[Rfam]
A member of the RNA family "Transposase-2 RNA" from Trebonia kvetii, 67 nucleotides long.
Rfam 15.1 lists 214 matches to the family in 110 species.
Rfam classes the family as a small RNA.
RNA sequence: GAACCCGGAACCCGGCAACCCGCACGGGGGCAAGACCGGGACCGCCGCCCGGCAACAGGCGGCUGCG
Numbered sequence: 001g002a003a004c005c006c007g008g009a010a011c012c013c014g015g016c017a018a019c020c021c022g023c024a025c026g027g028g029g030g031c032a033a034g035a036c037c038g039g040g041a042c043c044g045c046c047g048c049c050c051g052g053c054a055a056c057a058g059g060c061g062g063c064u065g066c067g
Stems, first nucleotide, its partner, number of pairs: 011040005019028003044063006051056001